[Rfam]
RNA sequence: ACCAGAAAUACAUACUUCUUUACAUUCCAUAGUUUUUUAGGAGCAUAUGGGCAUAUAAAGAAGUAUGUGUUCCAGGC
Numbered sequence: 001a002c003c004a005g006a007a008a009u010a011c012a013u014a015c016u017u018c019u020u021u022a023c024a025u026u027c028c029a030u031a032g033u034u035u036u037u038u039a040g041g042a043g044c045a046u047a048u049g050g051g052c053a054u055a056u057a058a059a060g061a062a063g064u065a066u067g068u069g070u071u072c073c074a075g076g077c
Base pairs, nucleotide, nucleotide: 007071008070009069010068011067012066013065014064015063016062017061018060019059020058021057022056024054027050028049029048030047031046
RNA: mir-1 microRNA precursor family